[Rfam]
RNA sequence: AUCACCUGGGGAUUUUGUGAAAAUGUAGACUCUGACUCAGCAGAUCUGGGUGGGGCCUGAGAUUCUGCAUUUCUAGCAAGUUCCCAGGUAAUGCUCA
Numbered sequence: 001a002u003c004a005c006c007u008g009g010g011g012a013u014u015u016u017g018u019g020a021a022a023a024u025g026u027a028g029a030c031u032c033u034g035a036c037u038c039a040g041c042a043g044a045u046c047u048g049g050g051u052g053g054g055g056c057c058u059g060a061g062a063u064u065c066u067g068c069a070u071u072u073c074u075a076g077c078a079a080g081u082u083c084c085c086a087g088g089u090a091a092u093g094c095u096c097a
Stems, first nucleotide, its partner, number of pairs: 004089002009084003014080005020074001021072003025068005031062003
This 97-nucleotide sequence from Ailuropoda melanoleuca belongs to the Rfam family "mir-544 microRNA precursor family". On this family, see Chiang et al., Genes Dev 2010: "Mammalian microRNAs: experimental evaluation of novel and previously annotated genes". A search with the family's covariance model found it, with a score of 71 bits. Pairs were carried over by alignment from the consensus structure, which was predicted with RNAalifold.